[Rfam]
RNA sequence: GUGCCUUAAACUAAUGAGUAAGGAAAAUAUAGAGCUUUGGUGACGCUUAGCUAUGCUAAAUAAUUAAGCGAACCUAUUUUUGAAGGGAUAUAGGUCGUCCUGAAGCUGCCUGAACUACUUUUUUAGGUGGUUUAGUGAAGCGAUCUAUCCC
Dot-bracket structure: ...(((((..........))))).........((((..(......)..)))).((((.........))))..............(((((..(((((((..(..(((((.(((((.......))))).)))))..)....))))))))))))
Numbered sequence: 001g002u003g004c005c006u007u008a009a010a011c012u013a014a015u016g017a018g019u020a021a022g023g024a025a026a027a028u029a030u031a032g033a034g035c036u037u038u039g040g041u042g043a044c045g046c047u048u049a050g051c052u053a054u055g056c057u058a059a060a061u062a063a064u065u066a067a068g069c070g071a072a073c074c075u076a077u078u079u080u081u082g083a084a085g086g087g088a089u090a091u092a093g094g095u096c097g098u099c100c101u102g103a104a105g106c107u108g109c110c111u112g113a114a115c116u117a118c119u120u121u122u123u124u125a126g127g128u129g130g131u132u133u134a135g136u137g138a139a140g141c142g143a144u145c146u147a148u149c150c151c
Stems, first nucleotide, its partner, number of pairs: 004023005033052004039046001054070004085151005092146007101135001104132005110126005
The family of this 151-nucleotide RNA sequence from Microctonus aethiopoides is "U12 minor spliceosomal RNA". Its Rfam clan is "U2 clan". Its family is annotated with mRNA branch site recognition, U12 snRNP and pre-mRNA branch point binding in the Gene Ontology. The organism belongs to Microctonus, within Eukaryota. It is annotated as a spliceosomal small nuclear RNA.